A member of the RNA family "Small nucleolar RNA SNORA63" from Gopherus agassizii, 120 nucleotides long. Rfam links the family to the GO terms RNA processing and nucleolus. From the family's description: E3 belongs to the H/ACA class of snoRNAs and is involved in the processing of eukaryotic pre-rRNA and has regions of complementarity to 18S rRNA. E3 is encoded in introns in the gene for protein synthesis initiation factor 4AII.
RNA sequence: AUGCAGGAUAAGUUACAAUGUAGCUGUCAAGUGCUGUAUUGUCCUUCCCCCGCUCAAAUUGUUUCAUAUCCCUGACUGCCUUGAUUCCCAGAGUAGACAGGGACGCUUAGUCUCAUACAU
Numbered sequence: 001a002u003g004c005a006g007g008a009u010a011a012g013u014u015a016c017a018a019u020g021u022a023g024c025u026g027u028c029a030a031g032u033g034c035u036g037u038a039u040u041g042u043c044c045u046u047c048c049c050c051c052g053c054u055c056a057a058a059u060u061g062u063u064u065c066a067u068a069u070c071c072c073u074g075a076c077u078g079c080c081u082u083g084a085u086u087c088c089c090a091g092a093g094u095a096g097a098c099a100g101g102g103a104c105g106c107u108u109a110g111u112c113u114c115a116u117a118c119a120u
Stems, first nucleotide, its partner, number of pairs: 003053002006051002015042010071101004076096004

Taxonomically the source falls in Gopherus (Eukaryota, Craniata, Euteleostomi, Sauria).